[Rfam]
RNA sequence: GUACUCUGGUUUCUCUUCAUCCACGCAUAAAUCUUUCGCCUUUUACUAAAGAUUUCCGUGGAGAGGAACAUUAUAAUGAGUCUAUAGACUUAUUUUUCUAACCUCGAAAGGGGUA
Numbered sequence: 001g002u003a004c005u006c007u008g009g010u011u012u013c014u015c016u017u018c019a020u021c022c023a024c025g026c027a028u029a030a031a032u033c034u035u036u037c038g039c040c041u042u043u044u045a046c047u048a049a050a051g052a053u054u055u056c057c058g059u060g061g062a063g064a065g066g067a068a069c070a071u072u073a074u075a076a077u078g079a080g081u082c083u084a085u086a087g088a089c090u091u092a093u094u095u096u097u098c099u100a101a102c103c104u105c106g107a108a109a110g111g112g113g114u115a
Stems, first nucleotide, its partner, number of pairs: 003081004009069011029055008101114005

Notes:
Rfam assigns this 115-nucleotide sequence from Owenia fusiformis to the family "U5 spliceosomal RNA". A reference for the family is Zwieb (1997), "The uRNA database", Nucleic Acids Res. It scores 84 bits against the family's covariance model.